[Rfam]
RNA: Y RNA
RNA sequence: GGCUAGUCCGAAUUCAGUGGUGUUUACAACAAAUUGCUCACAAUUACACAUUUCCUUGUUUAUUUUACACUCCCGCUGCUUCACUUGACUGGCCUCAA
Number, nucleotide and partner (000 for none) at each position: 001g094002g093003c092004u091005a090006g089007u088008c087009c000010g086011a085012a000013u000014u000015c000016a077017g076018u075019g074020g073021u000022g072023u000024u000025u000026a000027c000028a060029a059030c058031a000032a056033a000034u000035u000036g000037c000038u000039c000040a000041c000042a000043a000044u000045u000046a000047c000048a000049c000050a000051u000052u000053u000054c000055c000056u032057u000058g030059u029060u028061u000062a000063u000064u000065u000066u000067a000068c000069a000070c000071u000072c022073c020074c019075g018076c017077u016078g000079c000080u000081u000082c000083a000084c000085u011086u010087g008088a007089c006090u005091g004092g003093c002094c001095u000096c000097a000098a000